[Rfam]
RNA sequence: CCCUCCGAAGUUUCUCUCAGGAUAGCGGGCCGACACGCGUUUGUUGUUUUGUGCGGUAAAGCGAAUGAUUAGUGCAUUUGGGGUACGAAGUACUUCGGGCGAUUCUCAAACUUUAAAUGCGCAAGGGGGUGGCUGCUUAAUUGAGCCUACUCUUUGAAAAACGUCGGCCCUGUGGGCCACUUUUGGUAAGCAGAACUGGCGAUAAGGGAUGAACCUUAAGCGCGGUUAAGGCGCCUCAUUACCCGCUUAUAGACCCCACAAAAGGUGUUGAUUCAUAUAGACAGCAGGACGGUGGCCAUGGAAGUCGGAAUCCGCUAAGGAGUGUGUAACAACUCACCUGCCGAAUGAAUUAGCCCUGAAAAUGGAUGGCGCUAAAGCGGGUAGCCGACACCGCGCCGUUCCGGCGAGACGAGGCCGGGAUGAGUAGGAGGGCGUGGCGGUCAGUGAAGCAGGCUAGGGUGCAGACCCAGCUGAAACGGCCGCUAGUGCAGAU
Numbered sequence: 001c002c003c004u005c006c007g008a009a010g011u012u013u014c015u016c017u018c019a020g021g022a023u024a025g026c027g028g029g030c031c032g033a034c035a036c037g038c039g040u041u042u043g044u045u046g047u048u049u050u051g052u053g054c055g056g057u058a059a060a061g062c063g064a065a066u067g068a069u070u071a072g073u074g075c076a077u078u079u080g081g082g083g084u085a086c087g088a089a090g091u092a093c094u095u096c097g098g099g100c101g102a103u104u105c106u107c108a109a110a111c112u113u114u115a116a117a118u119g120c121g122c123a124a125g126g127g128g129g130u131g132g133c134u135g136c137u138u139a140a141u142u143g144a145g146c147c148u149a150c151u152c153u154u155u156g157a158a159a160a161a162c163g164u165c166g167g168c169c170c171u172g173u174g175g176g177c178c179a180c181u182u183u184u185g186g187u188a189a190g191c192a193g194a195a196c197u198g199g200c201g202a203u204a205a206g207g208g209a210u211g212a213a214c215c216u217u218a219a220g221c222g223c224g225g226u227u228a229a230g231g232c233g234c235c236u237c238a239u240u241a242c243c244c245g246c247u248u249a250u251a252g253a254c255c256c257c258a259c260a261a262a263a264g265g266u267g268u269u270g271a272u273u274c275a276u277a278u279a280g281a282c283a284g285c286a287g288g289a290c291g292g293u294g295g296c297c298a299u300g301g302a303a304g305u306c307g308g309a310a311u312c313c314g315c316u317a318a319g320g321a322g323u324g325u326g327u328a329a330c331a332a333c334u335c336a337c338c339u340g341c342c343g344a345a346u347g348a349a350u351u352a353g354c355c356c357u358g359a360a361a362a363u364g365g366a367u368g369g370c371g372c373u374a375a376a377g378c379g380g381g382u383a384g385c386c387g388a389c390a391c392c393g394c395g396c397c398g399u400u401c402c403g404g405c406g407a408g409a410c411g412a413g414g415c416c417g418g419g420a421u422g423a424g425u426a427g428g429a430g431g432g433c434g435u436g437g438c439g440g441u442c443a444g445u446g447a448a449g450c451a452g453g454c455u456a457g458g459g460u461g462c463a464g465a466c467c468c469a470g471c472u473g474a475a476a477c478g479g480c481c482g483c484u485a486g487u488g489c490a491g492a493u
Base pairs, nucleotide, nucleotide: 001432002431003430004429005428006427011024013022014021015020027170028169029168030167031166032165033164049124050123051122052121053120054119059114060112061111066108067107068106071103073101074100075099078098079097080096081095082094083093085091126152127151128150131147132146133145134144176200177199178198179197181195182194183193184192185191205216206215207214220396221395222394223393224392226390230386231385232384239383241382244379245378246377263357264356265355267354268353269352270351271350272349273348274347275346276345284341285340286339287338288337290314291313292312296308297307315319320335324333325332397422398421399420400419401418402417403416404415405414433488435485436484437483438482439481440480441479442478444477445476452472453471458467459466460465
Eukaryotic large subunit ribosomal RNA: a 493-nucleotide part of an RNA from Palmaria palmata. The family is grouped with related families in Rfam's "LSU clan". Rfam's curators put it in the seed alignment. The organism belongs to Palmaria, within Eukaryota. Pairs were carried over by alignment from the consensus structure, which is taken from published work.